Rfam assigns this 126-nucleotide sequence from Otolemur garnettii to the family "U4atac minor spliceosomal RNA". The literature on the family includes a 2005 paper in RNA by Lorkovic et al., "Evolutionary conservation of minor U12-type spliceosome between plants and humans". A search with the family's covariance model found it, with a score of 74 bits. The family's RNA type in Rfam is spliceosomal small nuclear RNA. Its Rfam clan is "U4 clan". Rfam describes the family as follows. U4atac is an essential component of the minor U12-type spliceosome complex which is required for removal of the rarer class of eukaryotic introns (AT-AC, U12-type).
[Rfam]
RNA sequence: ACCAUCCUUUUCUUGGGAUCGCAGUACUGUCCAACGAGCUUAUAGCAGAGGCAGUACUGCUAACACCUGCACAGCACACCCCCAUCAACUACAGGUUGGCUUUACUUUGGUGAAAUUUUUAGAAAG
Numbered sequence: 001a002c003c004a005u006c007c008u009u010u011u012c013u014u015g016g017g018a019u020c021g022c023a024g025u026a027c028u029g030u031c032c033a034a035c036g037a038g039c040u041u042a043u044a045g046c047a048g049a050g051g052c053a054g055u056a057c058u059g060c061u062a063a064c065a066c067c068u069g070c071a072c073a074g075c076a077c078a079c080c081c082c083c084a085u086c087a088a089c090u091a092c093a094g095g096u097u098g099g100c101u102u103u104a105c106u107u108u109g110g111u112g113a114a115a116u117u118u119u120u121a122g123a124a125a126g
Stems, first nucleotide, its partner, number of pairs: 007017003021060004026055006038046002083112005090104002093101002